Shown here is a 172-nucleotide sequence from Salipaludibacillus neizhouensis, a member of the family "glmS glucosamine-6-phosphate activated ribozyme aptamer". The family's RNA type in Rfam is riboswitch.
RNA sequence: CGAAAUAUUAUAGCGCCUGGACUACGAUACGGACGGAAAAUUAUCGUAGUUGACGAGGAGGAGGAUUAUCGAAAGUUUCGGCGGAUACCUCCCGGUUGCCACAUCACAACCGAAAACUGAGGCCUAAAACGAAGAGGCGACUCAUCGAACAAAAGCCAAAGUAAUAGAUGCU
Numbered sequence: 001c002g003a004a005a006u007a008u009u010a011u012a013g014c015g016c017c018u019g020g021a022c023u024a025c026g027a028u029a030c031g032g033a034c035g036g037a038a039a040a041u042u043a044u045c046g047u048a049g050u051u052g053a054c055g056a057g058g059a060g061g062a063g064g065a066u067u068a069u070c071g072a073a074a075g076u077u078u079c080g081g082c083g084g085a086u087a088c089c090u091c092c093c094g095g096u097u098g099c100c101a102c103a104u105c106a107c108a109a110c111c112g113a114a115a116a117c118u119g120a121g122g123c124c125u126a127a128a129a130c131g132a133a134g135a136g137g138c139g140a141c142u143c144a145u146c147g148a149a150c151a152a153a154a155g156c157c158a159a160a161g162u163a164a165u166a167g168a169u170g171c172u
Stems, first nucleotide, its partner, number of pairs: 020051008029042001060092005069081004093112006116162003121157002130147003134143003
The base pairs follow the family's consensus structure, which is taken from published work. The source organism's lineage runs through Bacteria, Bacilli, Caryophanales, Bacillaceae and Salipaludibacillus. Rfam describes the family as follows. This entry contains a glucosamine-6-phosphate activated ribozyme that is found in the mRNA for GlmS. GlmS is an enzyme that uses fructose-6-phosphate and glutamine to generate glucosamine-6-phosphate. The ribozyme catalyses self cleavage of the glmS mRNA that is thought to regulate GlmS activity.